[Rfam]
RNA: Mammalian CPEB3 ribozyme
RNA sequence: AGAGGCAUUUAGGGUCCACUGAAGGGGCAUUCACAUCACAGUCACUGUCAGAUGAGUUUUCUCAUUUGCCAAUCCUUCC
Numbered sequence: 001a002g003a004g005g006c007a008u009u010u011a012g013g014g015u016c017c018a019c020u021g022a023a024g025g026g027g028c029a030u031u032c033a034c035a036u037c038a039c040a041g042u043c044a045c046u047g048u049c050a051g052a053u054g055a056g057u058u059u060u061c062u063c064a065u066u067u068g069c070c071a072a073u074c075c076u077u078c079c
Stems, first nucleotide, its partner, number of pairs: 013045001014043001016041001021078006027039001049068007